[Rfam]
RNA sequence: AAAUGUAGUAGACUAUAAGUAUACCUGAAAUUGUAAGUAUACUAAGUACACUACGUUUAC
Dot-bracket structure: (((((((((..(((...(((((((............))))))).)))..)))))))))..
Numbered sequence: 001a002a003a004u005g006u007a008g009u010a011g012a013c014u015a016u017a018a019g020u021a022u023a024c025c026u027g028a029a030a031u032u033g034u035a036a037g038u039a040u041a042c043u044a045a046g047u048a049c050a051c052u053a054c055g056u057u058u059a060c
Stems, first nucleotide, its partner, number of pairs: 001058009012047003018043007

This 60-nucleotide RNA sequence from Perca flavescens belongs to the Rfam family "mir-728 microRNA precursor family". Its family is annotated with miRNA-mediated post-transcriptional gene silencing and RISC complex in the Gene Ontology. Pairs were carried over by alignment from the consensus structure, which was predicted with RNAalifold. The family has 4 seed sequences and 193 matches in Rfam 15.1.